The family of this 100-nucleotide RNA from Actinomyces sp. S4-C9 is "TPP riboswitch aptamer (THI element)".
Taxonomically the source falls in Actinomyces (Bacteria, Bacillati, Actinomycetota, Actinomycetaceae).
A search with the family's covariance model found it, with a score of 58 bits.
The base pairs follow the family's consensus structure, which is taken from published work.
Nucleotides: 100
Base pairs, nucleotide, nucleotide: 007087008086009085010084011053012052013051014050017028018027019026020025035047036046037045038044039043058081059080060079061078063074064073065072
Number, partner (000 for none) and nucleotide at each position: 001000u002000a003000g004000g005000u006000g007087c008086g009085a010084c011053a012052g013051g014050g015000g016000a017028g018027c019026g020025g021000u022000g023000a024000g025020c026019c027018g028017c029000u030000g031000a032000g033000a034000g035047u036046g037045c038044g039043c040000g041000u042000u043039g044038c045037g046036c047035a048000g049000a050014c051013c052012c053011u054000c055000g056000a057000a058081c059080c060079u061078g062000a063074c064073g065072g066000u067000u068000a069000g070000u071000a072065c073064c074063g075000g076000c077000g078061u079060a080059g081058g082000a083000a084010g085009u086008c087007g088000a089000g090000u091000u092000c093000u094000c095000u096000a097000a098000a099000c100000g